[Rfam]
RNA sequence: GACGACCGGCCGAACACGUAUGUGUCCGGCCCACAAGUGGAGGCUCCGAACUCCCACCUGAUCGCCCCUCGGGGCGGCGGGUCACCGGUCAGGCGGCCACCACCGUUCCGUACGGACGGUGGAGUCGCCCGAUAUUACGCCCCGCGGUUGACCUGCGGCGGUGUUCCGGCAUUCCAGGAGCCCCGCCUGUGUCCCGUCCGGGGCAUUUUUC
Numbered sequence: 001g002a003c004g005a006c007c008g009g010c011c012g013a014a015c016a017c018g019u020a021u022g023u024g025u026c027c028g029g030c031c032c033a034c035a036a037g038u039g040g041a042g043g044c045u046c047c048g049a050a051c052u053c054c055c056a057c058c059u060g061a062u063c064g065c066c067c068c069u070c071g072g073g074g075c076g077g078c079g080g081g082u083c084a085c086c087g088g089u090c091a092g093g094c095g096g097c098c099a100c101c102a103c104c105g106u107u108c109c110g111u112a113c114g115g116a117c118g119g120u121g122g123a124g125u126c127g128c129c130c131g132a133u134a135u136u137a138c139g140c141c142c143c144g145c146g147g148u149u150g151a152c153c154u155g156c157g158g159c160g161g162u163g164u165u166c167c168g169g170c171a172u173u174c175c176a177g178g179a180g181c182c183c184c185g186c187c188u189g190u191g192u193c194c195c196g197u198c199c200g201g202g203g204c205a206u207u208u209u210u211c
Base pairs, nucleotide, nucleotide: 004090005089006088007087008086009085012027028083029082030081031080032079034060035059037057038056039055040054041052042051062077063076064075065074066073067072092129093128094127096126100122101121102120103119104118105117106116107115139204140203141202142201143200144199145196146195147194153191155190156189157187158186159185160184161183163181164180165179166178167177
Dot-bracket structure: ...((((((..(..............)(((((.((.((((((........)).)))).)).((((((....)))))).))))).)))))).(((.(...((((((((.......))))))))...)))).........(((((((((.....(.(((((((.(((((.........))))).))))).)))..)))..)))))).......